[Rfam]
RNA sequence: GUGUCCCUCAGAGAUCCUCCGAACACUUCAUUGGGAUGUUUUUAAUACAAUUUCCUACUGAAGUGUUUGGAGGAACUCCAAGGGCCAC
Numbered sequence: 001g002u003g004u005c006c007c008u009c010a011g012a013g014a015u016c017c018u019c020c021g022a023a024c025a026c027u028u029c030a031u032u033g034g035g036a037u038g039u040u041u042u043u044a045a046u047a048c049a050a051u052u053u054c055c056u057a058c059u060g061a062a063g064u065g066u067u068u069g070g071a072g073g074a075a076c077u078c079c080a081a082g083g084g085c086c087a088c
Base pairs, nucleotide, nucleotide: 005084006083007082008081011078012077013076015074016073017072018071019070020069022068023067024065025064026063027062028061029060030059032057033056034055035054
Dot-bracket structure: ....((((..(((.((((((.(((((((((.((((..................)))).))))))).)))))))).)))..))))....